A member of the RNA family "SAH (S-adenosyl-L-homocysteine) riboswitch aptamer" from Burkholderiales bacterium JOSHI_001, 73 nucleotides long.
RNA sequence: AGUUCCGAGGAGCGUUGCAAGGUCGUCCUGACCCCAGGCUCGGAGCCCUUCAUUGCAACCGCGCUCACCCGCA
Numbered sequence: 001a002g003u004u005c006c007g008a009g010g011a012g013c014g015u016u017g018c019a020a021g022g023u024c025g026u027c028c029u030g031a032c033c034c035c036a037g038g039c040u041c042g043g044a045g046c047c048c049u050u051c052a053u054u055g056c057a058a059c060c061g062c063g064c065u066c067a068c069c070c071g072c073a
Base pairs, nucleotide, nucleotide: 002046003045004044005043006042007041008040021033022032023031024030025029
Rfam links the family to the GO terms S-adenosylhomocysteine metabolic process and regulation of gene expression. The organism belongs to Burkholderiales, within Bacteria. A search with the family's covariance model found it, with a score of 62 bits.